[Rfam]
RNA: SAM riboswitch aptamer (S box leader)
RNA sequence: AGCUUAUCCAGAGAGGUGGAGGGACUGGCCCUUUGAAGCCUCGGCAGCAGAUUCAUGGAGAAUACUGUGCCAACUCCAGCAGGCGUGAGUCUGGGAGAUAAGAA
Numbered sequence: 001a002g003c004u005u006a007u008c009c010a011g012a013g014a015g016g017u018g019g020a021g022g023g024a025c026u027g028g029c030c031c032u033u034u035g036a037a038g039c040c041u042c043g044g045c046a047g048c049a050g051a052u053u054c055a056u057g058g059a060g061a062a063u064a065c066u067g068u069g070c071c072a073a074c075u076c077c078a079g080c081a082g083g084c085g086u087g088a089g090u091c092u093g094g095g096a097g098a099u100a101a102g103a104a
Stems, first nucleotide, its partner, number of pairs: 003102006013042005021031003025079004043071004048067002051063004075096001080093005